[Rfam]
Nucleotides: 084
Base pairs, nucleotide, nucleotide: 008078009077010076011075012074013073014072015071016070018068020066021065022064023063024062025061026060027059028058029057034052035051036050039047040046
Number, partner (000 for none) and nucleotide at each position: 001000u002000c003000a004000a005000c006000u007000c008078a009077a010076a011075u012074u013073u014072g015071u016070a017000u018068g019000g020066a021065g022064u023063u024062g025061g026060a027059a028058c029057a030000g031000g032000u033000g034052c035051c036050u037000c038000c039047g040046u041000u042000u043000g044000c045000c046040g047039c048000u049000a050036g051035g052034g053000g054000c055000g056000c057029u058028g059027u060026u061025c062024u063023a064022a065021c066020u067000g068018c069000a070016u071015a072014c073013a074012a075011a076010u077009u078008u079000g080000a081000u082000u083000u084000a
Overview:
This 84-nucleotide RNA sequence from Bombyx mori belongs to the Rfam family "mir-2807 microRNA precursor family". For this family Rfam cites "MicroRNAs of Bombyx mori identified by Solexa sequencing" (Liu et al., BMC Genomics, 2010). Pairs were carried over by alignment from the consensus structure, which was predicted with RNAalifold.